Rfam assigns this 87-nucleotide sequence from Janthinobacterium agaricidamnosum to the family "Glycine riboswitch aptamer".
RNA sequence: CACUCUUGAUCGGGAGAGGGUAGCCAUGCGCUGCCGCCGAAGGGGCACCACCCAAAAACUCUCAGGCAAAAGGACCGAUCAAGGGGA
Numbered sequence: 001c002a003c004u005c006u007u008g009a010u011c012g013g014g015a016g017a018g019g020g021u022a023g024c025c026a027u028g029c030g031c032u033g034c035c036g037c038c039g040a041a042g043g044g045g046c047a048c049c050a051c052c053c054a055a056a057a058a059c060u061c062u063c064a065g066g067c068a069a070a071a072g073g074a075c076c077g078a079u080c081a082a083g084g085g086g087a
Base pairs, nucleotide, nucleotide: 006082007081008080009079010078011077012076013075020034021033022032023031036067037066038065039063040062043061044060045059

The organism belongs to Janthinobacterium agaricidamnosum, within Bacteria. The base pairs follow the family's consensus structure. It scores 61 bits against the family's covariance model.